[Rfam]
RNA sequence: AAAUCUAACUCGCCGAAUUUCAGAAAGAUGAAAACGGGGGAACCAACCGAUCGCGCGUACAAGUCUAAUUGUAUUCGAUGAUCAUGGGGUGAAUUCCGGUCGCGAUGCAAUUUGCCGGCCGGAUAGGGCAGCCUGUUCGAGCCCGAACCCGACAGCUAACCUCGUAGGCGACUUGCGAACGGGAAU
Numbered sequence: 001a002a003a004u005c006u007a008a009c010u011c012g013c014c015g016a017a018u019u020u021c022a023g024a025a026a027g028a029u030g031a032a033a034a035c036g037g038g039g040g041a042a043c044c045a046a047c048c049g050a051u052c053g054c055g056c057g058u059a060c061a062a063g064u065c066u067a068a069u070u071g072u073a074u075u076c077g078a079u080g081a082u083c084a085u086g087g088g089g090u091g092a093a094u095u096c097c098g099g100u101c102g103c104g105a106u107g108c109a110a111u112u113u114g115c116c117g118g119c120c121g122g123a124u125a126g127g128g129c130a131g132c133c134u135g136u137u138c139g140a141g142c143c144c145g146a147a148c149c150c151g152a153c154a155g156c157u158a159a160c161c162u163c164g165u166a167g168g169c170g171a172c173u174u175g176c177g178a179a180c181g182g183g184a185a186u
Stems, first nucleotide, its partner, number of pairs: 011170004018033005034165006044086002087150003095123008126144004
c-di-AMP riboswitch aptamer (ydaO/yuaA leader): a 186-nucleotide sequence from Cohnella endophytica. A reference for the family is Barrick et al. (2004), "New RNA motifs suggest an expanded scope for riboswitches in bacterial genetic control", Proc Natl Acad Sci U S A.